[Rfam]
RNA sequence: UGGAAGUGAUGAAAUAGAGAUAAUUGGAUGUGUCUUUGAAUGAGUGUGUGUAAGAAAUGGAAUUUAAACCAAGUGGGGUGGGGUGUGGGGAGUGUGUGUGUGUGCACAGAUAGAAGAGGCUUCAAAUGGGGGCACUGACGAUGCAGUGCUGAUUCCGGAGUGCAUCUGAGGCAUGUUGUUAAAUUCUGGGGUGCCACAUUGCAACAUUGCCGAUGAUUAAAGCCCAAAAGAAGCCCACCAAGAGAAGCCUGGGUAUCCUAAAUCUCUAACAGGUUCAUUACUGAAAGUGAUCCUGUGAUCUGAUCUGA
Dot-bracket structure: ((((.........................................................................................................................................................................((((((.(..(.(....).).....).)))))).................................................................................................)))).